RNA: TPP riboswitch aptamer (THI element)
RNA sequence: UACCACAAGCUGGGGUGCCAUUUUUUUGGCUGAGAUACACCCAUGAACCUGAUCUGGUUAAUACCAGCGUAGGAAGUCUUGUUCUUAUAUUAG
Number, nucleotide and partner (000 for none) at each position: 001u000002a000003c000004c000005a000006c081007a080008a079009g078010c000011u043012g042013g041014g040015g000016u037017g030018c029019c028020a027021u000022u000023u000024u000025u000026u000027u020028g019029g018030c017031u000032g000033a000034g000035a000036u000037a016038c000039a000040c014041c013042c012043a011044u000045g000046a000047a000048c073049c072050u071051g070052a000053u000054c067055u066056g065057g064058u000059u000060a000061a000062u000063a000064c057065c056066a055067g054068c000069g000070u051071a050072g049073g048074a000075a000076g000077u000078c009079u008080u007081g006082u000083u000084c000085u000086u000087a000088u000089a000090u000091u000092a000093g000